[Rfam]
RNA sequence: GACCGACAUCAGGGAUUCGUUCUGGGAGCCGUUACCGACCGCCAGAUAAGAGUGCAUCCCCAGCUCUUUCAUCUGCUGUUCGCCGAUAACGCGGGUGAUGACGUUCUUGCUGUAGGCGUCAGCCAGCUGGCGCGCCUGUGACGCCAGGUACGCGGCGUUACAGAUGUUUGGCGGCAUAUUGCCAAGAUCUUUUGC
Numbered sequence: 001g002a003c004c005g006a007c008a009u010c011a012g013g014g015a016u017u018c019g020u021u022c023u024g025g026g027a028g029c030c031g032u033u034a035c036c037g038a039c040c041g042c043c044a045g046a047u048a049a050g051a052g053u054g055c056a057u058c059c060c061c062a063g064c065u066c067u068u069u070c071a072u073c074u075g076c077u078g079u080u081c082g083c084c085g086a087u088a089a090c091g092c093g094g095g096u097g098a099u100g101a102c103g104u105u106c107u108u109g110c111u112g113u114a115g116g117c118g119u120c121a122g123c124c125a126g127c128u129g130g131c132g133c134g135c136c137u138g139u140g141a142c143g144c145c146a147g148g149u150a151c152g153c154g155g156c157g158u159u160a161c162a163g164a165u166g167u168u169u170g171g172c173g174g175c176a177u178a179u180u181g182c183c184a185a186g187a188u189c190u191u192u193u194g195c
Stems, first nucleotide, its partner, number of pairs: 005189002012032001014030001016028003020024001035041001050059001062077003078135002081132005087126001091123002094120004099112002102109002136163003140159006167186006
The record is a 195-nucleotide RNA, which matches "Yersinia sRNA 276" in Rfam. A search with the family's covariance model found it, with a score of 184 bits. By type it is an antisense RNA. For this family Rfam cites "Transcriptomic profiling of Yersinia pseudotuberculosis reveals reprogramming of the Crp regulon by temperature and uncovers Crp as a master regulator of small RNAs" (Nuss et al., PLoS Genet, 2015).